[Rfam]
The record is a 75-nucleotide sequence from Camelus dromedarius, which matches "mir-631 microRNA precursor family" in Rfam. Taxonomically the source falls in Camelus (Eukaryota, Teleostomi, Euteleostomi, Camelidae). Its family is annotated with miRNA-mediated post-transcriptional gene silencing and RISC complex in the Gene Ontology. The match comes from Rfam's covariance-model search (75 bits).
RNA sequence: GGGGAACUUGGUUAGACCUGGCUCAGACCUCAGCUCCACAAGCUGAUGGACGGAGUCAGGGGACCAAAGCUCUCC
Numbered sequence: 001g002g003g004g005a006a007c008u009u010g011g012u013u014a015g016a017c018c019u020g021g022c023u024c025a026g027a028c029c030u031c032a033g034c035u036c037c038a039c040a041a042g043c044u045g046a047u048g049g050a051c052g053g054a055g056u057c058a059g060g061g062g063a064c065c066a067a068a069g070c071u072c073u074c075c
Stems, first nucleotide, its partner, number of pairs: 001075005009067001010065004017060006024053001026051001028049002030046006